[Rfam]
Nucleotides: 078
Base pairs, nucleotide, nucleotide: 014064015063016062017061019059020058021057022056023055024054025053026052027051028050030049031048032047033046
Number, partner (000 for none) and nucleotide at each position: 001000c002000u003000u004000u005000g006000c007000u008000u009000u010000u011000a012000g013000c014064c015063u016062c017061u018000u019059u020058a021057c022056a023055g024054u025053g026052c027051u028050g029000c030049c031048u032047u033046g034000u035000a036000g037000a038000a039000u040000a041000a042000u043000g044000u045000u046033c047032a048031a049030g050028c051027a052026g053025c054024a055023u056022u057021g058020u059019a060000c061017a062016g063015g064014g065000c066000u067000a068000u069000g070000a071000c072000a073000g074000c075000a076000u077000a078000g
The family of this 78-nucleotide RNA sequence from Oncorhynchus tshawytscha is "mir-103/107 microRNA precursor family". Lineage of the source: Eukaryota > Gnathostomata > Actinopteri > Protacanthopterygii > Oncorhynchus. Rfam links the family to the GO terms RISC complex and miRNA-mediated post-transcriptional gene silencing. About the family: This family consists of the mammalian microRNA (miRNA) precursors mir-103 and mir107. Animal miRNAs are transcribed as ~70nt precursors and subsequently processed by the Dicer enzyme to give a ~22nt product. In this case the mature sequence comes from the 3' arm of the precursor. The extents of the hairpin precursors are not generally known and are estimated based on hairpin prediction.